Shown here is a 77-nucleotide sequence, a member of the family "L13-Bacteroidia ribosomal protein leader". A reference for the family is Eckert and Weinberg (2020), "Discovery of 20 novel ribosomal leader candidates in bacteria and archaea", BMC Microbiol. Rfam classes the family as a cis-regulatory leader. It is one of the family's seed sequences. Pairs were carried over by alignment from the consensus structure, which is taken from published work.
Nucleotides: 077
Stems, first nucleotide, its partner, number of pairs: 001022006036071005042065006049058002
Number, partner (000 for none) and nucleotide at each position: 001022g002021g003020c004019a005018g006017c007000u008000u009000g010000c011000u012000u013000a014000g015000a016000a017006g018005u019004u020003g021002c022001c023000g024000c025000g026000c027000c028000g029000g030000a031000g032000a033000g034000u035000g036071u037070u038069a039068a040067u041000a042065g043064u044063c045062g046061u047060g048000c049058c050057u051000u052000u053000g054000g055000c056000c057050g058049g059000a060047c061046a062045c063044g064043a065042u066000g067040g068039u069038u070037a071036g072000g073000g074000a075000a076000u077000c